RNA sequence: UCGGUACCGGUUCACGCUGCUCUCCGUCUGGGGGCCGGCGACCCGGCGACC
Dot-bracket structure: ..(((.((((....((((((((((.....)))))).))))..))))..)))
RNA: L31-Actinobacteria ribosomal protein leader